Rfam assigns this 129-nucleotide RNA from Entomoplasma freundtii to the family "Ribosomal protein L10 leader". The family's consensus secondary structure was predicted with CMfinder.
RNA sequence: UAAACAAUGCUAUUAGUACCCAAGACAGUAACCGGGCCAAGCCCUUAAUUUGUUACCGAGGACUCAAAAUGUUUCUUGAACUUUUUUGUGUUACCUUGGUUACGAAACCAAGGUUUUUUAUUUAGGAAA
Numbered sequence: 001u002a003a004a005c006a007a008u009g010c011u012a013u014u015a016g017u018a019c020c021c022a023a024g025a026c027a028g029u030a031a032c033c034g035g036g037c038c039a040a041g042c043c044c045u046u047a048a049u050u051u052g053u054u055a056c057c058g059a060g061g062a063c064u065c066a067a068a069a070u071g072u073u074u075c076u077u078g079a080a081c082u083u084u085u086u087u088g089u090g091u092u093a094c095c096u097u098g099g100u101u102a103c104g105a106a107a108c109c110a111a112g113g114u115u116u117u118u119u120a121u122u123u124a125g126g127a128a129a
Base pairs, nucleotide, nucleotide: 028056029055030054031053032052034044035043036042093114094113095112096111097110098109099108100107101106